A member of the RNA family "Lysine riboswitch aptamer" from bacterium 1XD42-54, 175 nucleotides long.

RNA sequence: GAGAGUGAUAGAGGUUGCGUGAUUCAACAGUAAACAGCAGGAUGUGUCCGGGCACAGGCGAAUGCUGUCGAAAGGGGAGAACGCCGAAAGGAGCAGUUCCGGUGGCUGUUUUCUUGGGCAUGUGGUGAAGAAUCACAUGACUGUCAUCGCAUCGCGAUGGAGGGCUAUCUGAAGA
Numbered sequence: 001g002a003g004a005g006u007g008a009u010a011g012a013g014g015u016u017g018c019g020u021g022a023u024u025c026a027a028c029a030g031u032a033a034a035c036a037g038c039a040g041g042a043u044g045u046g047u048c049c050g051g052g053c054a055c056a057g058g059c060g061a062a063u064g065c066u067g068u069c070g071a072a073a074g075g076g077g078a079g080a081a082c083g084c085c086g087a088a089a090g091g092a093g094c095a096g097u098u099c100c101g102g103u104g105g106c107u108g109u110u111u112u113c114u115u116g117g118g119c120a121u122g123u124g125g126u127g128a129a130g131a132a133u134c135a136c137a138u139g140a141c142u143g144u145c146a147u148c149g150c151a152u153c154g155c156g157a158u159g160g161a162g163g164g165c166u167a168u169c170u171g172a173a174g175a
Base pairs, nucleotide, nucleotide: 007169008168009167010166011165017084018083019082020081023078024077025076034068035067036066037065038064039063088115089114090113091111092110093109094108095107096106097105098104116142117141119139120138121137122136123135124134125133126132144160145159146158147157148156149155150154
Record summary
The match comes from Rfam's covariance-model search (109 bits).